[Rfam]
RNA: Lysine riboswitch aptamer
RNA sequence: UUUAGAAAUAGAGGUGCAUAUAUGAGGAUAGCAUAAGAGUGCUAAGGAAAAAGCUUCCGAAAUCUUAUGUGAAGGGCAUAAUUGCCGAAAGAAGUUAUUAGGCUUGUAUCAUAACUUCUUGGGGAAUGUAUGGAAAAUACAUUCACUGUCAUAUUCUUUAUGAGUAUGGAGAGCUAUUGAAUAA
Numbered sequence: 001u002u003u004a005g006a007a008a009u010a011g012a013g014g015u016g017c018a019u020a021u022a023u024g025a026g027g028a029u030a031g032c033a034u035a036a037g038a039g040u041g042c043u044a045a046g047g048a049a050a051a052a053g054c055u056u057c058c059g060a061a062a063u064c065u066u067a068u069g070u071g072a073a074g075g076g077c078a079u080a081a082u083u084g085c086c087g088a089a090a091g092a093a094g095u096u097a098u099u100a101g102g103c104u105u106g107u108a109u110c111a112u113a114a115c116u117u118c119u120u121g122g123g124g125a126a127u128g129u130a131u132g133g134a135a136a137a138u139a140c141a142u143u144c145a146c147u148g149u150c151a152u153a154u155u156c157u158u159u160a161u162g163a164g165u166a167u168g169g170a171g172a173g174c175u176a177u178u179g180a181a182u183a184a
Base pairs, nucleotide, nucleotide: 007178008177009176010175011174016085017084018083021080022079023078024077031070032069033068034067035066036065037064038063089120090119091118092117093116094115095114096113097112098111100109121147122146124144125143126142127141128140129139130138131137149169150168151167152166153165154164155163